[Rfam]
RNA sequence: CGAAGAUAACGCUUAGAUUCUUCGCAGCUCUUUCGUGUUAAUAGUGGUAUUCAUGGCCGGAUAUCAUGGUUAGUGAAUC
Numbered sequence: 001c002g003a004a005g006a007u008a009a010c011g012c013u014u015a016g017a018u019u020c021u022u023c024g025c026a027g028c029u030c031u032u033u034c035g036u037g038u039u040a041a042u043a044g045u046g047g048u049a050u051u052c053a054u055g056g057c058c059g060g061a062u063a064u065c066a067u068g069g070u071u072a073g074u075g076a077a078u079c
Stems, first nucleotide, its partner, number of pairs: 001024006038073005044067009
RNA: L13-Bacteroidia ribosomal protein leader